[Rfam]
Nucleotides: 066
Stems, first nucleotide, its partner, number of pairs: 004063002009058012022045002025042003
Number, partner (000 for none) and nucleotide at each position: 001000g002000c003000g004063g005062c006000c007000a008000u009058c010057a011056a012055a013054g014053u015052g016051g017050a018049g019048g020047c021000c022045c023044u024000c025042u026041c027040u028000u029000g030000a031000g032000a033000u034000a035000u036000a037000a038000u039000g040027a041026g042025a043000a044023a045022g046000u047020g048019c049018u050017u051016c052015c053014a054013c055012u056011u057010u058009g059000u060000g061000u062005g063004c064000c065000a066000c
The family of this 66-nucleotide sequence from Mus spicilegus is "mir-290 microRNA precursor family".
Clan: mir-290 clan.
Pairs were carried over by alignment from the consensus structure, which was predicted with RNAalifold.
A search with the family's covariance model found it, with a score of 62 bits.
Its family is annotated with RISC complex and miRNA-mediated post-transcriptional gene silencing in the Gene Ontology.
A reference for the family is Houbaviy et al. (2003), "Embryonic stem cell-specific MicroRNAs", Dev Cell.